The family of this 108-nucleotide RNA sequence from Staphylococcus saccharolyticus is "Fst antitoxin sRNA". Rfam links the family to the GO term mRNA binding. The organism belongs to Staphylococcus, within Bacteria. On this family, see Fozo et al., Nucleic Acids Res 2010: "Abundance of type I toxin-antitoxin systems in bacteria: searches for new candidates and discovery of novel families".

RNA sequence: GGCAGUAGUAAGGGGAUUUUUUGGUGUGGCUAUAGUGAUGAGUGUCGCCUAUUUACUUUUAUCAUUGCGAUGAACGUAGCCAAUGCGUAAACAAAGCAACGAUACAAC
Dot-bracket structure: .......(((...............(((((.............)))))................((((.....(((.........))).......))))...)))...
Numbered sequence: 001g002g003c004a005g006u007a008g009u010a011a012g013g014g015g016a017u018u019u020u021u022u023g024g025u026g027u028g029g030c031u032a033u034a035g036u037g038a039u040g041a042g043u044g045u046c047g048c049c050u051a052u053u054u055a056c057u058u059u060u061a062u063c064a065u066u067g068c069g070a071u072g073a074a075c076g077u078a079g080c081c082a083a084u085g086c087g088u089a090a091a092c093a094a095a096g097c098a099a100c101g102a103u104a105c106a107a108c
Stems, first nucleotide, its partner, number of pairs: 008105003026048005065099004074088003
The family's consensus secondary structure was predicted with RNAalifold.